[Rfam]
RNA: Cyano-1 RNA
Organism: Parasynechococcus marenigrum
RNA sequence: AUGGAAGUGAGGAAAAAUCUAACGGGUUGGAAACAAGGACACAACCCCGUGAGGUUUCGGA
Numbered sequence: 001a002u003g004g005a006a007g008u009g010a011g012g013a014a015a016a017a018u019c020u021a022a023c024g025g026g027u028u029g030g031a032a033a034c035a036a037g038g039a040c041a042c043a044a045c046c047c048c049g050u051g052a053g054g055u056u057u058c059g060g061a
Stems, first nucleotide, its partner, number of pairs: 015057005022050005027044003